[Rfam]
Notes: mir-130 microRNA precursor family: an 87-nucleotide RNA from Ornithorhynchus anatinus. The organism belongs to Ornithorhynchus, within Eukaryota. Rfam links the family to the GO terms RISC complex and miRNA-mediated post-transcriptional gene silencing. A search with the family's covariance model found it, with a score of 42 bits.

RNA sequence: CCCAAGCCCGGGCUCUUUCCACUGAGCCACGCUGCUUCAUGCAUCAGAGAAGCAGUGUGGCUUAGUGGAAAGAGCCCGGGCUUGGGA
Numbered sequence: 001c002c003c004a005a006g007c008c009c010g011g012g013c014u015c016u017u018u019c020c021a022c023u024g025a026g027c028c029a030c031g032c033u034g035c036u037u038c039a040u041g042c043a044u045c046a047g048a049g050a051a052g053c054a055g056u057g058u059g060g061c062u063u064a065g066u067g068g069a070a071a072g073a074g075c076c077c078g079g080g081c082u083u084g085g086g087a
Stems, first nucleotide, its partner, number of pairs: 002086002005082006012075008022065017